[Rfam]
RNA sequence: GUUAAGGGGGUUGUUGUCUGGUUCAAGGUCUCCACAUACAUCAUGUACAUGGAGGGCAUGCAUGCAUGAUAUGCUGUUGUUGAGUGCCAUUUGCUCGAUCUUGUGUAUAUAUGCAGUGUAUGAUGUGGUGAUCUCGGACCAGGCUUCGAUCCCUUUAAC
Numbered sequence: 001g002u003u004a005a006g007g008g009g010g011u012u013g014u015u016g017u018c019u020g021g022u023u024c025a026a027g028g029u030c031u032c033c034a035c036a037u038a039c040a041u042c043a044u045g046u047a048c049a050u051g052g053a054g055g056g057c058a059u060g061c062a063u064g065c066a067u068g069a070u071a072u073g074c075u076g077u078u079g080u081u082g083a084g085u086g087c088c089a090u091u092u093g094c095u096c097g098a099u100c101u102u103g104u105g106u107a108u109a110u111a112u113g114c115a116g117u118g119u120a121u122g123a124u125g126u127g128g129u130g131a132u133c134u135c136g137g138a139c140c141a142g143g144c145u146u147c148g149a150u151c152c153c154u155u156u157a158a159c
Stems, first nucleotide, its partner, number of pairs: 001159013016144006024136001026134005
Record summary:
The record is a 159-nucleotide RNA from Brachypodium distachyon, which matches "mir-166 microRNA precursor family" in Rfam. Its family is annotated with RISC complex and miRNA-mediated post-transcriptional gene silencing in the Gene Ontology. The match comes from Rfam's covariance-model search (71 bits). On this family, see Reinhart et al., Genes Dev 2002: "MicroRNAs in plants". This family represents the plant microRNA (miRNA) precursor mir-166.